A member of the RNA family "c-di-AMP riboswitch aptamer (ydaO/yuaA leader)" from Actinoplanes sp. OR16, 133 nucleotides long.
A reference for the family is Barrick et al. (2004), "New RNA motifs suggest an expanded scope for riboswitches in bacterial genetic control", Proc Natl Acad Sci U S A.
NCBI's taxonomy places the organism under Bacteria, Bacillati, Actinomycetes, Micromonosporaceae, Actinoplanes.
Gene Ontology terms of the family: cyclic-di-AMP binding and regulation of gene expression.
[Rfam]
RNA sequence: GGCAGGCCACCGCCCAAUCGUCGCGAGACGAGCCGGGGAACCAAGUCAGUGGGGUGAAUCCGCCUUCGGGCGGUAGGGAUCUCUUCCGUCCCGAACCCGUCAGCUAACUCGGUCGGCGGUGACAAGGAAGGAA
Numbered sequence: 001g002g003c004a005g006g007c008c009a010c011c012g013c014c015c016a017a018u019c020g021u022c023g024c025g026a027g028a029c030g031a032g033c034c035g036g037g038g039a040a041c042c043a044a045g046u047c048a049g050u051g052g053g054g055u056g057a058a059u060c061c062g063c064c065u066u067c068g069g070g071c072g073g074u075a076g077g078g079a080u081c082u083c084u085u086c087c088g089u090c091c092c093g094a095a096c097c098c099g100u101c102a103g104c105u106a107a108c109u110c111g112g113u114c115g116g117c118g119g120u121g122a123c124a125a126g127g128a129a130g131g132a133a
Base pairs, nucleotide, nucleotide: 011118012117013116014115018031019030020029021028022027032113033112034111035110036109037108042051043050052098053097054096060073061072062071063070076092077091078090079089